[Rfam]
RNA sequence: AGCUGCGCGGUGAGCACAAAGCGAACUAUUCUUUCGCCUUUUACUAAAGAAUACCGUGUGCGCGCCGCAAAUAGCAGCAUACGCUAAUUUUUGGAGGGGAUUUUCCUUGAGGAGGAC
Number, nucleotide and partner (000 for none) at each position: 001a000002g000003c077004u076005g075006c074007g000008c067009g066010g065011u064012g063013a000014g061015c060016a059017c058018a057019a000020a000021g000022c000023g000024a000025a000026c000027u053028a052029u051030u050031c049032u048033u047034u046035c000036g000037c000038c000039u000040u000041u000042u000043a000044c000045u000046a034047a033048a032049g031050a030051a029052u028053a027054c000055c000056g000057u018058g017059u016060g015061c014062g000063c012064g011065c010066c009067g008068c000069a000070a000071a000072u000073a000074g006075c005076a004077g003078c000079a000080u000081a000082c000083g000084c000085u000086a000087a000088u000089u000090u000091u000092u000093g000094g000095a000096g000097g000098g000099g117100a000101u115102u114103u113104u112105c000106c000107u000108u000109g000110a000111g000112g104113a103114g102115g101116a000117c099